[Rfam]
RNA sequence: GCUAUGUGAUGAUGUCCCACUGACUUGAACAUGUUGUAGUUGGUCCUUGGCAUGUAUAUGAGAGAGCUCAGUGUUUCAAGACGGGACUGAUGGCGGC
Numbered sequence: 001g002c003u004a005u006g007u008g009a010u011g012a013u014g015u016c017c018c019a020c021u022g023a024c025u026u027g028a029a030c031a032u033g034u035u036g037u038a039g040u041u042g043g044u045c046c047u048u049g050g051c052a053u054g055u056a057u058a059u060g061a062g063a064g065a066g067c068u069c070a071g072u073g074u075u076u077c078a079a080g081a082c083g084g085g086a087c088u089g090a091u092g093g094c095g096g097c
Stems, first nucleotide, its partner, number of pairs: 001094004
RNA: Small nucleolar RNA SNORD21
Organism: Podarcis muralis